A member of the RNA family "mir-8517 microRNA precursor family" from Plutella xylostella, 108 nucleotides long.
Gene Ontology terms of the family: miRNA-mediated post-transcriptional gene silencing and RISC complex.
The family's consensus secondary structure was predicted with RNAalifold.

RNA sequence: UUAGUGGAGGCUUUAACUACUGAACUGUUUUGUCCCUCUCUGUCAAAGAAAAAAAUGUUCUCUGUCAGAGAGUGUAAGAACAGUUCAAUAGCUAAAGCGUUCAGUAAC
Numbered sequence: 001u002u003a004g005u006g007g008a009g010g011c012u013u014u015a016a017c018u019a020c021u022g023a024a025c026u027g028u029u030u031u032g033u034c035c036c037u038c039u040c041u042g043u044c045a046a047a048g049a050a051a052a053a054a055a056u057g058u059u060c061u062c063u064g065u066c067a068g069a070g071a072g073u074g075u076a077a078g079a080a081c082a083g084u085u086c087a088a089u090a091g092c093u094a095a096a097g098c099g100u101u102c103a104g105u106a107a108c
Stems, first nucleotide, its partner, number of pairs: 001107003005103002011097005017091003021087008029069004034064001049059002052056001